[Rfam]
RNA sequence: CCCGCAGAAGGACGGAAAGACCCUAUAGACCUUAACUGUAAGCUGUCAUUGUUUCUUCGGUUUUAAUGCUCAGAGUAAGUGGGAGACGCUGAAGACGCCCUUUAGGGGGCGUCCGAGUCAUCAAUGAGACACCACCCUUUGAAACUGGAGGAUCUAACCCUGAGCCGUGAAUCCGGCCAGAGGACCGUGUCAGCCGGUCAGUUUUACUGGGGCGGUAUCCUCCCAAAGAGUAACGGAGGAGCGCGAAGGUGGGCUCAGCCCGGUUGGCAACCGGGUGUCGAGUGCAUGGGCAUAAGCCCGCCUAACUGUGAGACCAACAAGUCGAGCAGAUGCGAAAGCAGGCCCAAGUGAUCCGGCGGUAGAAAGUGGAAUUGCCGUCGCUCAACGGAUAAAAGGUACCUUAGGGAUAACAGGCUGAUCACGCCCAAGAGUUCAUAUCGACGGCGUGGUUUGGCACCUCGAUGUCGGCUCGUCGCAUCCUGGGGCUGGAGAAGGUCCCAAGGGUCCGGCUGUUCGCCGGUUAAAGCGGCACGCGAGCUGGGUUCAGAACGUCGCGAGACAGUUCGGUCCUCUAUCCUCUGUGGGCGUU
Numbered sequence: 001c002c003c004g005c006a007g008a009a010g011g012a013c014g015g016a017a018a019g020a021c022c023c024u025a026u027a028g029a030c031c032u033u034a035a036c037u038g039u040a041a042g043c044u045g046u047c048a049u050u051g052u053u054u055c056u057u058c059g060g061u062u063u064u065a066a067u068g069c070u071c072a073g074a075g076u077a078a079g080u081g082g083g084a085g086a087c088g089c090u091g092a093a094g095a096c097g098c099c100c101u102u103u104a105g106g107g108g109g110c111g112u113c114c115g116a117g118u119c120a121u122c123a124a125u126g127a128g129a130c131a132c133c134a135c136c137c138u139u140u141g142a143a144a145c146u147g148g149a150g151g152a153u154c155u156a157a158c159c160c161u162g163a164g165c166c167g168u169g170a171a172u173c174c175g176g177c178c179a180g181a182g183g184a185c186c187g188u189g190u191c192a193g194c195c196g197g198u199c200a201g202u203u204u205u206a207c208u209g210g211g212g213c214g215g216u217a218u219c220c221u222c223c224c225a226a227a228g229a230g231u232a233a234c235g236g237a238g239g240a241g242c243g244c245g246a247a248g249g250u251g252g253g254c255u256c257a258g259c260c261c262g263g264u265u266g267g268c269a270a271c272c273g274g275g276u277g278u279c280g281a282g283u284g285c286a287u288g289g290g291c292a293u294a295a296g297c298c299c300g301c302c303u304a305a306c307u308g309u310g311a312g313a314c315c316a317a318c319a320a321g322u323c324g325a326g327c328a329g330a331u332g333c334g335a336a337a338g339c340a341g342g343c344c345c346a347a348g349u350g351a352u353c354c355g356g357c358g359g360u361a362g363a364a365a366g367u368g369g370a371a372u373u374g375c376c377g378u379c380g381c382u383c384a385a386c387g388g389a390u391a392a393a394a395g396g397u398a399c400c401u402u403a404g405g406g407a408u409a410a411c412a413g414g415c416u417g418a419u420c421a422c423g424c425c426c427a428a429g430a431g432u433u434c435a436u437a438u439c440g441a442c443g444g445c446g447u448g449g450u451u452u453g454g455c456a457c458c459u460c461g462a463u464g465u466c467g468g469c470u471c472g473u474c475g476c477a478u479c480c481u482g483g484g485g486c487u488g489g490a491g492a493a494g495g496u497c498c499c500a501a502g503g504g505u506c507c508g509g510c511u512g513u514u515c516g517c518c519g520g521u522u523a524a525a526g527c528g529g530c531a532c533g534c535g536a537g538c539u540g541g542g543u544u545c546a547g548a549a550c551g552u553c554g555c556g557a558g559a560c561a562g563u564u565c566g567g568u569c570c571u572c573u574a575u576c577c578u579c580u581g582u583g584g585g586c587g588u589u
Base pairs, nucleotide, nucleotide: 001585002584003583004582005581006580007579008578010577011576012575014572015570022405023404024403025402027401028400029397030396031395032394033393035202036201037200038199042194043193044192045191047189048188051154053152054151055150056149057148058147059146060145061144062143063142064141065140066139068137079135080134081133082132085119086118087117094113095112096111097110098109099108100107101106158182160180164177165176166175167174205217206216207215208214218240219239220238221237222236223235241386243343244342249301250300251299252298253297254296255281256280258276259275260274261273262272263271282291283290306329307328308327309326312323313322314321331340332339333338354380355379356378357377358376359375360374362373363372414455415454416453418452419449420448421447422446423445424444425443429439430438466541467539468538469537470536471533472530473529474528475527476526479504480503482499483498484497485496486495487494506520507519508518509517510516547565548564549563550562551560552559553558